Source information:
The family of this 106-nucleotide sequence from Aquimarina amphilecti is "SAM riboswitch aptamer (S box leader)".
RNA sequence: AAGUUAUUAAGAAAGGUGGAGGGAAUAGACCCUAUGAAACCUUAGCAACCCUUUAUUCAUAAAGAAGGUGCUAAAUUCUAUUCGUCAUUGGCGAAGAAGAUAACUC
Numbered sequence: 001a002a003g004u005u006a007u008u009a010a011g012a013a014a015g016g017u018g019g020a021g022g023g024a025a026u027a028g029a030c031c032c033u034a035u036g037a038a039a040c041c042u043u044a045g046c047a048a049c050c051c052u053u054u055a056u057u058c059a060u061a062a063a064g065a066a067g068g069u070g071c072u073a074a075a076u077u078c079u080a081u082u083c084g085u086c087a088u089u090g091g092c093g094a095a096g097a098a099g100a101u102a103a104c105u106c
Base pairs, nucleotide, nucleotide: 002105003104004103005102006101007100008099013043014042015041016040017039021032022031023030026080027079028078029077044072045071046070047069049068050067051064052063053062054061076098081095082094083093084092085091086090